[Rfam]
Shown here is an 83-nucleotide RNA sequence from Paenibacillus nasutitermitis, a member of the family "Group II catalytic intron D1-D4-1". Pairs were carried over by alignment from the consensus structure. About the family: Group II introns are found in rRNA, tRNA and mRNA of organelles in fungi, plants and protists, and also in mRNA in bacteria. The match comes from Rfam's covariance-model search (50 bits). For this family Rfam cites "The ins and outs of group II introns" (Bonen and Vogel, Trends Genet, 2001).
RNA sequence: AAAUCACGGUUGAAACAAGAUUUAUCAUGAGAAGUCAGCAGACGCCUUAGUACCUUAGGUAGUCGACAACCUUAGGGAAGGGC
Numbered sequence: 001a002a003a004u005c006a007c008g009g010u011u012g013a014a015a016c017a018a019g020a021u022u023u024a025u026c027a028u029g030a031g032a033a034g035u036c037a038g039c040a041g042a043c044g045c046c047u048u049a050g051u052a053c054c055u056u057a058g059g060u061a062g063u064c065g066a067c068a069a070c071c072u073u074a075g076g077g078a079a080g081g082g083c
Stems, first nucleotide, its partner, number of pairs: 001022002004020002008016001010014001034043003044083003053076003057072002